The record is a 33-nucleotide RNA from Flavobacterium sediminis, which matches "DUF805b RNA" in Rfam.
Rfam classes the family as a cis-regulatory element.
The match comes from Rfam's covariance-model search (40 bits).
[Rfam]
RNA sequence: AUAGCGGAUGCCGAAAAGCUGAUAGAGUAGGUG
Numbered sequence: 001a002u003a004g005c006g007g008a009u010g011c012c013g014a015a016a017a018g019c020u021g022a023u024a025g026a027g028u029a030g031g032u033g
Stems, first nucleotide, its partner, number of pairs: 003020003010032003